[Rfam]
RNA: SAM riboswitch aptamer (S box leader)
RNA sequence: CUCUUAUUAAGAGUGGUGGAGGGAUUUGGCCCUAUGAAACCCGGCAACCGGCAUAUUAUAUGCAACGGUGCUAAUUCCAACGGUAUAUUACCGACAGAUGAGAU
Numbered sequence: 001c002u003c004u005u006a007u008u009a010a011g012a013g014u015g016g017u018g019g020a021g022g023g024a025u026u027u028g029g030c031c032c033u034a035u036g037a038a039a040c041c042c043g044g045c046a047a048c049c050g051g052c053a054u055a056u057u058a059u060a061u062g063c064a065a066c067g068g069u070g071c072u073a074a075u076u077c078c079a080a081c082g083g084u085a086u087a088u089u090a091c092c093g094a095c096a097g098a099u100g101a102g103a104u
Base pairs, nucleotide, nucleotide: 002103003102004101005100006099007098008097013042015041016040017039021032022031023030026080027079028078029077043072044071045070046069048068049067051063052062053061076096081093082092083091084090085089